[Rfam]
RNA sequence: ACCUGUAAUGGGUCUCCACUGGAAGGUUUAAGCCGUCAUCCACUCUUACCUCCCUGCCACUACCCUUGCAGGAGCCCAGUUCGAGUCCUGUGGUGUCCACUCCACUCACGUAGGUAACUUGUGAUGCUGGAUGGACCUAAGCAAUGAAUACAAUUGGCGAGGGAAGAAAUUCUGCAGUCGGGUAUUCACCAUGGGACGGCGGCGCUGGAAUACUCCCACGAGGGUUGGGGGGCGAGUGUGGGCUGGUGUAUCAACUGGUAUU
Numbered sequence: 001a002c003c004u005g006u007a008a009u010g011g012g013u014c015u016c017c018a019c020u021g022g023a024a025g026g027u028u029u030a031a032g033c034c035g036u037c038a039u040c041c042a043c044u045c046u047u048a049c050c051u052c053c054c055u056g057c058c059a060c061u062a063c064c065c066u067u068g069c070a071g072g073a074g075c076c077c078a079g080u081u082c083g084a085g086u087c088c089u090g091u092g093g094u095g096u097c098c099a100c101u102c103c104a105c106u107c108a109c110g111u112a113g114g115u116a117a118c119u120u121g122u123g124a125u126g127c128u129g130g131a132u133g134g135a136c137c138u139a140a141g142c143a144a145u146g147a148a149u150a151c152a153a154u155u156g157g158c159g160a161g162g163g164a165a166g167a168a169a170u171u172c173u174g175c176a177g178u179c180g181g182g183u184a185u186u187c188a189c190c191a192u193g194g195g196a197c198g199g200c201g202g203c204g205c206u207g208g209a210a211u212a213c214u215c216c217c218a219c220g221a222g223g224g225u226u227g228g229g230g231g232g233c234g235a236g237u238g239u240g241g242g243c244u245g246g247u248g249u250a251u252c253a254a255c256u257g258g259u260a261u262u
Stems, first nucleotide, its partner, number of pairs: 001013003018259005029250001033246003040241004045236003049232005063224006071216004076208005081202003085197009095136001097134003101131004106124005112119002137141001145188007155180004163172003